[Rfam]
This 64-nucleotide RNA sequence from Equus asinus belongs to the Rfam family "MAT2A 3'UTR stem loop B". Pairs were carried over by alignment from the consensus structure, which is taken from published work. The match comes from Rfam's covariance-model search (56 bits).
RNA sequence: ACAGCUACUCAGUAUCCUUGUGACGCCAAACAGAGAAGUCACAUGAUAGUACCUGAGUGUCUGU
Dot-bracket structure: ((((.(.((..(....(.(((((((.....)......)))))).).......)..)).).))))
Numbered sequence: 001a002c003a004g005c006u007a008c009u010c011a012g013u014a015u016c017c018u019u020g021u022g023a024c025g026c027c028a029a030a031c032a033g034a035g036a037a038g039u040c041a042c043a044u045g046a047u048a049g050u051a052c053c054u055g056a057g058u059g060u061c062u063g064u
Stems, first nucleotide, its partner, number of pairs: 001064004006059001008057002012053001017045001019043006025031001
Lineage of the source: Eukaryota > Chordata > Vertebrata > Laurasiatheria > Equus.